[Rfam]
RNA sequence: GACAGUUUUGACUCACUCAACCUGGGUGUGAUGUUGCUGAUAAAACCAUCACAACCUCCUUGAGUGAGCGAUUUCUGUU
Numbered sequence: 001g002a003c004a005g006u007u008u009u010g011a012c013u014c015a016c017u018c019a020a021c022c023u024g025g026g027u028g029u030g031a032u033g034u035u036g037c038u039g040a041u042a043a044a045a046c047c048a049u050c051a052c053a054a055c056c057u058c059c060u061u062g063a064g065u066g067a068g069c070g071a072u073u074u075c076u077g078u079u
Stems, first nucleotide, its partner, number of pairs: 008071003012068009024056002027053007
Rfam assigns this 79-nucleotide RNA sequence from Cloeon dipterum to the family "mir-67 microRNA precursor family". On this family, see Cao et al., Insect Biochem Mol Biol 2008: "Identification of conserved microRNAs in Bombyx mori (silkworm) and regulation of fibroin L chain production by microRNAs in heterologous system". Rfam links the family to the GO terms RISC complex and miRNA-mediated post-transcriptional gene silencing. A search with the family's covariance model found it, with a score of 76 bits.